RNA sequence: UUGCAGACCUUCCAGCAUGAUUGGGUCUAGGGUGACUCAGUGUAUUCCUCCAGUGCUUGCCAGAACGUUCUGAAAUGUUUUGAGACUUUGCCCUGUCCCUUCCGCAGAGCGUGGUCGUAGACAUUUCAGACAGUU
Numbered sequence: 001u002u003g004c005a006g007a008c009c010u011u012c013c014a015g016c017a018u019g020a021u022u023g024g025g026u027c028u029a030g031g032g033u034g035a036c037u038c039a040g041u042g043u044a045u046u047c048c049u050c051c052a053g054u055g056c057u058u059g060c061c062a063g064a065a066c067g068u069u070c071u072g073a074a075a076u077g078u079u080u081u082g083a084g085a086c087u088u089u090g091c092c093c094u095g096u097c098c099c100u101u102c103c104g105c106a107g108a109g110c111g112u113g114g115u116c117g118u119a120g121a122c123a124u125u126u127c128a129g130a131c132a133g134u135u
Stems, first nucleotide, its partner, number of pairs: 003060004008055001018044002023038005071128005086114002089111003093107003
Overview:
The family of this 135-nucleotide RNA from Panthera tigris is "Small nucleolar RNA SNORA9". From the family's description: ACA9 is a member of the H/ACA class of snoRNA that guide the sites of modification of uridines to pseudouridines. NCBI's taxonomy places the organism under Eukaryota, Theria, Carnivora, Feliformia, Panthera tigris. The match comes from Rfam's covariance-model search (101 bits).